[Rfam]
skipping-rope RNA: an 89-nucleotide RNA from Novosphingobium sp. FSW06-99. NCBI's taxonomy places the organism under Bacteria, Pseudomonadati, Alphaproteobacteria, Sphingomonadales, Novosphingobium. By type it is a small RNA. Pairs were carried over by alignment from the consensus structure, which is taken from published work. A search with the family's covariance model found it, with a score of 39 bits.

RNA sequence: CUGGCCCGAGGUAGAAAAACGCUAUUGCGACGCGGACAUGGCUUUGGCCAUCUCUGAGAUGAGGGAUACUCGGCGACCCUCCGGGCCAG
Numbered sequence: 001c002u003g004g005c006c007c008g009a010g011g012u013a014g015a016a017a018a019a020c021g022c023u024a025u026u027g028c029g030a031c032g033c034g035g036a037c038a039u040g041g042c043u044u045u046g047g048c049c050a051u052c053u054c055u056g057a058g059a060u061g062a063g064g065g066a067u068a069c070u071c072g073g074c075g076a077c078c079c080u081c082c083g084g085g086c087c088a089g
Stems, first nucleotide, its partner, number of pairs: 001089008011031002014028001022072001033056001039050004061081005